[Rfam]
This 75-nucleotide sequence from Streptomyces scopuliridis belongs to the Rfam family "ASpks TB sRNA".
It is annotated as an antisense RNA.
Lineage of the source: Bacteria > Actinomycetes > Kitasatosporales > Streptomyces > Streptomyces scopuliridis.
RNA sequence: CUUCACGGAGCCCAGCAGCAGCGGCAGGUCCUGGUCGCGGUCCUGGCCGUAGGUGGCCAGCAGCGCCUGGGCCUC
Numbered sequence: 001c002u003u004c005a006c007g008g009a010g011c012c013c014a015g016c017a018g019c020a021g022c023g024g025c026a027g028g029u030c031c032u033g034g035u036c037g038c039g040g041u042c043c044u045g046g047c048c049g050u051a052g053g054u055g056g057c058c059a060g061c062a063g064c065g066c067c068u069g070g071g072c073c074u075c
Stems, first nucleotide, its partner, number of pairs: 015025002031071002038065002043060003047056003
Dot-bracket structure: ..............((.......)).....((.....((...(((.(((....))).)))...))....))....